RNA sequence: GGCUGGUCCCAUGGUAGUGUGUUAUCAGAAUUUAUUAACAUUGGUGUCACUAAAGUUGGUGUACAACCCCUCACUGCUAAAUUUGACUGGCUUUAA
Numbered sequence: 001g002g003c004u005g006g007u008c009c010c011a012u013g014g015u016a017g018u019g020u021g022u023u024a025u026c027a028g029a030a031u032u033u034a035u036u037a038a039c040a041u042u043g044g045u046g047u048c049a050c051u052a053a054a055g056u057u058g059g060u061g062u063a064c065a066a067c068c069c070c071u072c073a074c075u076g077c078u079a080a081a082u083u084u085g086a087c088u089g090g091c092u093u094u095a096a
Base pairs, nucleotide, nucleotide: 001092002091003090004089005088006087007086008085011083015079016075017074018073019072021070026061027060030057
Dot-bracket structure: ((((((((..(...(((((.(....((..(..........................)..))........).))))...)...).))))))))....
Shown here is a 96-nucleotide RNA from Microcebus murinus, a member of the family "Y RNA". The family has 104 seed sequences and 26,986 matches in Rfam 15.1. By type it is a non-coding RNA gene. Rfam's curators write: Y RNAs are components of the Ro ribonucleoprotein particle (Ro RNP), in association with Ro60 and La proteins. The Y RNAs and Ro60 and La proteins are well conserved, but the function of the Ro RNP is not known. In humans the RNA component can be one of four small RNAs -- hY1, hY3, hY4 and hY5. These small RNAs are predicted to fold into a conserved secondary structure containing three stem structures. Pairs were carried over by alignment from the consensus structure, which is taken from published work. NCBI's taxonomy places the organism under Eukaryota, Metazoa, Amniota, Strepsirrhini, Microcebus.